The family of this 78-nucleotide RNA from Carpinus fangiana is "Small nucleolar RNA Z159/U59". Rfam links the family to the GO terms nucleolus and RNA processing. NCBI's taxonomy places the organism under Eukaryota, Viridiplantae, Streptophytina, Gunneridae, Carpinus. The literature on the family includes a 2003 paper in Nucleic Acids Res by Chen et al., "The high diversity of snoRNAs in plants: identification and comparative study of 120 snoRNA genes from Oryza sativa".
RNA sequence: GCCUCUGAGGAUGAAUAGAAAAUAAUUCUUCUGAGAUGUUCCAUGCGGAAAUUUUUUGGAGACCUGAACUGAAGAGGC
Numbered sequence: 001g002c003c004u005c006u007g008a009g010g011a012u013g014a015a016u017a018g019a020a021a022a023u024a025a026u027u028c029u030u031c032u033g034a035g036a037u038g039u040u041c042c043a044u045g046c047g048g049a050a051a052u053u054u055u056u057u058g059g060a061g062a063c064c065u066g067a068a069c070u071g072a073a074g075a076g077g078c
Stems, first nucleotide, its partner, number of pairs: 003076004